[Rfam]
RNA sequence: GGAUGUUUGAGAGGAUCUGCCUUCAGUACGAGAGGACCGAGGUGGACAAACCUCUGGUGUACCAGUUAUCGUGCCAACGGUAAGUGCUGGGUAGCCAAGUUUGGACGGGAUAACCGCUGAAAGCAUCUAAGCGGGAAGCCUUCCUCAAGAUGAGACAUCCCUGAGUCUUCAAGGCUCCUAAAGGAACCAGAGAGAUGAUCUGGUUGAUAGGCUGGCGGUAUAAGUGCAGUAAUGUAUUCAGCCGACCAGUACUAAUUUUCCGUGAG
Numbered sequence: 001g002g003a004u005g006u007u008u009g010a011g012a013g014g015a016u017c018u019g020c021c022u023u024c025a026g027u028a029c030g031a032g033a034g035g036a037c038c039g040a041g042g043u044g045g046a047c048a049a050a051c052c053u054c055u056g057g058u059g060u061a062c063c064a065g066u067u068a069u070c071g072u073g074c075c076a077a078c079g080g081u082a083a084g085u086g087c088u089g090g091g092u093a094g095c096c097a098a099g100u101u102u103g104g105a106c107g108g109g110a111u112a113a114c115c116g117c118u119g120a121a122a123g124c125a126u127c128u129a130a131g132c133g134g135g136a137a138g139c140c141u142u143c144c145u146c147a148a149g150a151u152g153a154g155a156c157a158u159c160c161c162u163g164a165g166u167c168u169u170c171a172a173g174g175c176u177c178c179u180a181a182a183g184g185a186a187c188c189a190g191a192g193a194g195a196u197g198a199u200c201u202g203g204u205u206g207a208u209a210g211g212c213u214g215g216c217g218g219u220a221u222a223a224g225u226g227c228a229g230u231a232a233u234g235u236a237u238u239c240a241g242c243c244g245a246c247c248a249g250u251a252c253u254a255a256u257u258u259u260c261c262g263u264g265a266g
Stems, first nucleotide, its partner, number of pairs: 001160008011146004017045007047103005055097003062090005067082006107141003114134005163177005180263001183261004187203005208254003211250005216244003224237005